[Rfam]
RNA sequence: CGCACGCUGCAACGGCUUCCUGACGUGGCGUGAAAUUUUCAGUGGAGCA
Numbered sequence: 001c002g003c004a005c006g007c008u009g010c011a012a013c014g015g016c017u018u019c020c021u022g023a024c025g026u027g028g029c030g031u032g033a034a035a036u037u038u039u040c041a042g043u044g045g046a047g048c049a
Stems, first nucleotide, its partner, number of pairs: 004031007013022002015048003019045002

Rfam assigns this 49-nucleotide RNA sequence to the family "SAM/SAH riboswitch aptamer". The literature on the family includes a 2019 paper in Nucleic Acids Res by Weickhmann et al., "The structure of the SAM/SAH-binding riboswitch". Rfam links the family to the GO terms S-adenosylmethionine metabolic process and regulation of gene expression. A search with the family's covariance model found it, with a score of 49 bits.